[Rfam]
RNA sequence: GGGUCCGGCGGGCCACGAACUCCCCCAAAGGACCGGGAGAAAGAACCUCCCUCCCACCCACCCUCCCCCUCACCACCCGUACGGGUGACGAGCUUGCGGGUUUGAGAAGCGGGCGGUUACGUUCACCGCGACAACCGCAAAAAGUUGCGGCCCCCGGUCGGGACUGCCAUCCCGGUCCGAGGGCCUCACCGAUCAGGAAGAAGAGACCUUCCCG
Numbered sequence: 001g002g003g004u005c006c007g008g009c010g011g012g013c014c015a016c017g018a019a020c021u022c023c024c025c026c027a028a029a030g031g032a033c034c035g036g037g038a039g040a041a042a043g044a045a046c047c048u049c050c051c052u053c054c055c056a057c058c059c060a061c062c063c064u065c066c067c068c069c070u071c072a073c074c075a076c077c078c079g080u081a082c083g084g085g086u087g088a089c090g091a092g093c094u095u096g097c098g099g100g101u102u103u104g105a106g107a108a109g110c111g112g113g114c115g116g117u118u119a120c121g122u123u124c125a126c127c128g129c130g131a132c133a134a135c136c137g138c139a140a141a142a143a144g145u146u147g148c149g150g151c152c153c154c155c156g157g158u159c160g161g162g163a164c165u166g167c168c169a170u171c172c173c174g175g176u177c178c179g180a181g182g183g184c185c186u187c188a189c190c191g192a193u194c195a196g197g198a199a200g201a202a203g204a205g206a207c208c209u210u211c212c213c214g
Base pairs, nucleotide, nucleotide: 007193009191010190018070074087075086076085077084078083096127099124100123149185150184151183152182153181155179156178157177160173161172162171163170196212197211198210199209200208
Rfam assigns this 214-nucleotide RNA from Streptomyces taklimakanensis to the family "Streptomyces sRNA 4677".
NCBI's taxonomy places the organism under Bacteria, Actinomycetota, Kitasatosporales, Streptomycetaceae, Streptomyces.
Rfam's curators write: Located in the intergenic region between anti-sigma factor SCO4677 gene and a putative regulatory protein gene SCO4676. scr4677 expression requires the SCO4677 activity and scr4677 sRNA itself seem to affect the levels of the SCO4676-associated transcripts.
On this family, see Hindra et al., PLoS One 2014: "Complex intra-operonic dynamics mediated by a small RNA in Streptomyces coelicolor".
The family's RNA type in Rfam is small RNA.